Shown here is an 88-nucleotide RNA from Paraburkholderia steynii, a member of the family "sRNA-Xcc1".
By type it is a small RNA.
A reference for the family is Chen et al. (2011), "sRNA-Xcc1, an integron-encoded transposon- and plasmid-transferred trans-acting sRNA, is under the positive control of the key virulence regulators HrpG and HrpX of Xanthomonas campestris pathovar campestris", RNA Biol.

[Rfam]
RNA sequence: GGCCGGGUAGCGCGCAGCUAUACAAGACCCGCAAGGGGAAAGCUGCGGGCCGUCUUGCGGCGGUGUUCAAGUACCUGGCCGCCCUCUG
Number, nucleotide and partner (000 for none) at each position: 001g080002g079003c078004c077005g076006g075007g074008u073009a072010g000011c000012g000013c047014g046015c045016a044017g000018c042019u041020a000021u000022a000023c000024a000025a000026g000027a000028c037029c036030c035031g000032c000033a000034a000035g030036g029037g028038g000039a000040a000041a019042g018043c000044u016045g015046c014047g013048g000049g064050c063051c062052g061053u060054c000055u000056u000057g000058c000059g000060g053061c052062g051063g050064u049065g000066u000067u000068c000069a000070a000071g000072u009073a008074c007075c006076u005077g004078g003079c002080c001081g000082c000083c000084c000085u000086c000087u000088g000